[Rfam]
RNA sequence: GCCCUUAAGCGUAGGGUCCCUUAACUUUUAACUAAAAACGCUAAGGGACUUCUCUCAAAUCCCUUAUUUAAGGGCCGUUCCUUAGUUUUUUUAGUUAAAAGCUAAGGGACCCUACGCUUAAGGGC
Number, nucleotide and partner (000 for none) at each position: 001g125002c124003c123004c122005u121006u120007a119008a118009g117010c116011g115012u114013a113014g112015g111016g110017u109018c108019c107020c106021u105022u104023a103024a000025c101026u100027u099028u098029u097030a096031a095032c094033u093034a092035a091036a090037a089038a088039c000040g000041c085042u084043a083044a082045g081046g080047g079048a000049c000050u000051u000052c000053u000054c000055u000056c000057a000058a000059a000060u000061c000062c000063c000064u000065u000066a000067u000068u000069u000070a000071a000072g000073g000074g000075c000076c000077g000078u000079u047080c046081c045082u044083u043084a042085g041086u000087u000088u038089u037090u036091u035092u034093a033094g032095u031096u030097a029098a028099a027100a026101g025102c000103u023104a022105a021106g020107g019108g018109a017110c016111c015112c014113u013114a012115c011116g010117c009118u008119u007120a006121a005122g004123g003124g002125c001